[Rfam]
RNA sequence: CCCUUAACUAUUAAAAGUUUUGUUUUGAUCCCUUAACUUAUUUUUUGGUUUCGUUUUGGUCUCUUAACUCUUCCUCCGUCAACCACUUUGGUCCUUUAUGUUAGGAUGAAUGUAUUGGAGUUAAGGACCAAAAUGAAAUCAAAAAAUAAGUUAAGUGACCUAAACGAAACCAAAAAAUAAGUUAAGGGACCAAAACGAAAACUUUUAAUAGUUAAGGUACUAAAACGAAACCAAAAAAUAAGUUAAAGGACUAAAACAAAACUUUUAAUAAUUAAGGGA
Numbered sequence: 001c002c003c004u005u006a007a008c009u010a011u012u013a014a015a016a017g018u019u020u021u022g023u024u025u026u027g028a029u030c031c032c033u034u035a036a037c038u039u040a041u042u043u044u045u046u047g048g049u050u051u052c053g054u055u056u057u058g059g060u061c062u063c064u065u066a067a068c069u070c071u072u073c074c075u076c077c078g079u080c081a082a083c084c085a086c087u088u089u090g091g092u093c094c095u096u097u098a099u100g101u102u103a104g105g106a107u108g109a110a111u112g113u114a115u116u117g118g119a120g121u122u123a124a125g126g127a128c129c130a131a132a133a134u135g136a137a138a139u140c141a142a143a144a145a146a147u148a149a150g151u152u153a154a155g156u157g158a159c160c161u162a163a164a165c166g167a168a169a170c171c172a173a174a175a176a177a178u179a180a181g182u183u184a185a186g187g188g189a190c191c192a193a194a195a196c197g198a199a200a201a202c203u204u205u206u207a208a209u210a211g212u213u214a215a216g217g218u219a220c221u222a223a224a225a226c227g228a229a230a231c232c233a234a235a236a237a238a239u240a241a242g243u244u245a246a247a248g249g250a251c252u253a254a255a256a257c258a259a260a261a262c263u264u265u266u267a268a269u270a271a272u273u274a275a276g277g278g279a
Stems, first nucleotide, its partner, number of pairs: 002277006023256003027252001029250001031248001033246011045234016
A member of the RNA family "MIR2655 microRNA precursor family" from Medicago truncatula, 279 nucleotides long. Rfam 15.1 lists 892 matches to the family in 5 species.